[Rfam]
RNA sequence: UGGGUCGACUGGACGGUCGCGUGGCGGGAGACCGCACCGAGGAACGUCCGGGCUCCACAGGGCAGGGCGGUGGGUAACACCCACCCGGAGUGAUCCGCGAGAAAGUGCCACAGAGAGUAGACCGCCCCGCAAGGGGUAAGGGUGAAAGGGUGGUGUAAGAGACCACCGGGGGACAUGGUGACAUGGCCCGCCAGGUAAACCUCGCCCGGAGCAAGGUCAGACAGAGGAUGUUGACGCGGCCCGCCGAGUCCUCGGGUAGACCGCUGGAGCGGCACGGCAACGUGUCGCCGAGAGAGAUGGCCGUCGAAGGGGCGAAGAACCCCGGAACAGAACCCGGCGUACAGGUCGGCCCAUUCG
Numbered sequence: 001u002g003g004g005u006c007g008a009c010u011g012g013a014c015g016g017u018c019g020c021g022u023g024g025c026g027g028g029a030g031a032c033c034g035c036a037c038c039g040a041g042g043a044a045c046g047u048c049c050g051g052g053c054u055c056c057a058c059a060g061g062g063c064a065g066g067g068c069g070g071u072g073g074g075u076a077a078c079a080c081c082c083a084c085c086c087g088g089a090g091u092g093a094u095c096c097g098c099g100a101g102a103a104a105g106u107g108c109c110a111c112a113g114a115g116a117g118u119a120g121a122c123c124g125c126c127c128c129g130c131a132a133g134g135g136g137u138a139a140g141g142g143u144g145a146a147a148g149g150g151u152g153g154u155g156u157a158a159g160a161g162a163c164c165a166c167c168g169g170g171g172g173a174c175a176u177g178g179u180g181a182c183a184u185g186g187c188c189c190g191c192c193a194g195g196u197a198a199a200c201c202u203c204g205c206c207c208g209g210a211g212c213a214a215g216g217u218c219a220g221a222c223a224g225a226g227g228a229u230g231u232u233g234a235c236g237c238g239g240c241c242c243g244c245c246g247a248g249u250c251c252u253c254g255g256g257u258a259g260a261c262c263g264c265u266g267g268a269g270c271g272g273c274a275c276g277g278c279a280a281c282g283u284g285u286c287g288c289c290g291a292g293a294g295a296g297a298u299g300g301c302c303g304u305c306g307a308a309g310g311g312g313c314g315a316a317g318a319a320c321c322c323c324g325g326a327a328c329a330g331a332a333c334c335c336g337g338c339g340u341a342c343a344g345g346u347c348g349g350c351c352c353a354u355u356c357g
Base pairs, nucleotide, nucleotide: 001353002352003351004350005349006348007347008346009345010344011342012305013304014303015302016301017300018299020039021038024035025034026033027032044340045339046338048337049336050335051334052333053211054210055209056208060242061241062240063239065207066206067205068204069203070084071083072082073081074080085099086097087096088095089094100202101201105200106199107196108195109194122141123140124137125136126135127134128133149167150166151165152164153163154162169191170189171188172187174185175184176183177182215262216261217260218259224253225252226251227250228249229248236244237243269288270287271286272285273284274283275282276281
Source information
The record is a 357-nucleotide sequence from Microbacterium sp. CGR2, which matches "Bacterial RNase P class A" in Rfam. Gene Ontology terms of the family: ribonuclease P activity, tRNA processing and dimeric ribonuclease P complex. By type it is a ribozyme.